RNA sequence: AACCACACUAUUGAUGAAUGGAUUCAUCCGUGAGAUGAUGUGGUUGUUCCAUCUAGGAUGAGGACGUGGCAUCCUAUUAAUUUCGUGCGAUGGCUGGUAAUAGGAUGCCAUAUAUUUGUCCUAGGUGAAACAGUCACGUCAUCUCGCGGGUGAAUCCACUAGUAGUGUGGUU
Numbered sequence: 001a002a003c004c005a006c007a008c009u010a011u012u013g014a015u016g017a018a019u020g021g022a023u024u025c026a027u028c029c030g031u032g033a034g035a036u037g038a039u040g041u042g043g044u045u046g047u048u049c050c051a052u053c054u055a056g057g058a059u060g061a062g063g064a065c066g067u068g069g070c071a072u073c074c075u076a077u078u079a080a081u082u083u084c085g086u087g088c089g090a091u092g093g094c095u096g097g098u099a100a101u102a103g104g105a106u107g108c109c110a111u112a113u114a115u116u117u118g119u120c121c122u123a124g125g126u127g128a129a130a131c132a133g134u135c136a137c138g139u140c141a142u143c144u145c146g147c148g149g150g151u152g153a154a155u156c157c158a159c160u161a162g163u164a165g166u167g168u169g170g171u172u
Base pairs, nucleotide, nucleotide: 001172002171003170004169005168006167007166009164010163011162017160019158021156022155023154024153025152026151027150028149030147031146032145033144035142036141037140038139039138041136042135043134044133045132046131047130048129051126052125054123055122057120058119064113069108070107071106072105073104074103075102076101077100078099079098086097

Shown here is a 172-nucleotide sequence from Oryza glumipatula, a member of the family "MIR807 microRNA precursor family". On this family, see Luo et al., FEBS Lett 2006: "Rice embryogenic calli express a unique set of microRNAs, suggesting regulatory roles of microRNAs in plant post-embryogenic development". The family's consensus secondary structure was predicted with WAR. NCBI's taxonomy places the organism under Eukaryota, Magnoliopsida, Liliopsida, Poaceae, Oryza. Rfam 15.1 lists 1,514 matches to the family in 13 species.